[Rfam]
The record is a 112-nucleotide sequence from Clostridium sp. cel8, which matches "SAM riboswitch aptamer (S box leader)" in Rfam.
RNA sequence: UUCUUAUCAAGAGAGGUGGAGGGACUGGCCCUGAGAAACCCGACAACCAACAUGUUAUACAUGUAGUGGUGUUAAUUCCUACAGGAUAGUAAACAAUUCUGGAAGAUAAGAA
Dot-bracket structure: ((((((((....(.(((...(((...[[)))......))))((((.((.(((.........)))...))))))...(]]..((((((........))))))..)))))))))
Numbered sequence: 001u002u003c004u005u006a007u008c009a010a011g012a013g014a015g016g017u018g019g020a021g022g023g024a025c026u027g028g029c030c031c032u033g034a035g036a037a038a039c040c041c042g043a044c045a046a047c048c049a050a051c052a053u054g055u056u057a058u059a060c061a062u063g064u065a066g067u068g069g070u071g072u073u074a075a076u077u078c079c080u081a082c083a084g085g086a087u088a089g090u091a092a093a094c095a096a097u098u099c100u101g102g103a104a105g106a107u108a109a110g111a112a
Stems, first nucleotide, its partner, number of pairs: 001112008013041001015040003021031003027079002042073004047069002050064003077104001082101006
The match comes from Rfam's covariance-model search (88 bits).